[Rfam]
RNA sequence: GGUAAUAAACGGACGGUGUAAUAAACCAUUUGGACCCGGGGGCGGUACCCGGCGCCUCCACCAGAACAUAGCUCAUCCAAAGGCUAUGCUGUGGCGGGGGCGAAAUAGGAUCGACAAGGGUGUAAAGAUCGCUCUUUUACUCGGCAUGAUACCACCGUUAUCGGGUCAAACGAGUAGUUGCAAAUGACAACAAAGCUCAGGGUUACGCUCUCGCUGCUUAA
Number, nucleotide and partner (000 for none) at each position: 001g141002g140003u139004a138005a137006u000007a000008a000009a000010c000011g000012g000013a000014c131015g130016g129017u128018g000019u000020a000021a000022u000023a000024a000025a000026c120027c119028a000029u000030u117031u116032g115033g000034a000035c000036c052037c051038g050039g049040g048041g000042g000043c000044g000045g000046u000047a000048c040049c039050c038051g037052g036053c102054g101055c100056c099057u098058c097059c096060a000061c000062c000063a000064g000065a000066a000067c000068a000069u000070a000071g000072c000073u000074c000075a000076u000077c000078c000079a000080a000081a000082g000083g000084c000085u000086a000087u000088g000089c000090u000091g000092u000093g000094g000095c000096g059097g058098g057099g056100g055101c054102g053103a000104a000105a000106u000107a000108g000109g000110a000111u000112c000113g000114a000115c032116a031117a030118g000119g027120g026121u000122g000123u000124a000125a000126a000127g000128a017129u016130c015131g014132c000133u000134c000135u000136u000137u005138u004139a003140c002141u001142c157143g156144g155145c000146a000147u000148g000149a000150u000151a000152c000153c000154a000155c144156c143157g142158u000159u000160a000161u000162c000163g000164g000165g000166u000167c000168a000169a000170a000171c000172g000173a000174g000175u000176a000177g000178u000179u000180g000181c000182a000183a000184a000185u000186g000187a000188c000189a000190a000191c000192a000193a000194a000195g000196c000197u000198c000199a000200g000201g000202g000203u000204u000205a000206c000207g000208c000209u000210c000211u000212c000213g000214c000215u000216g000217c000218u000219u000220a000221a000
RNA: permuted transfer-messenger RNA
Organism: Paenochrobactrum gallinarii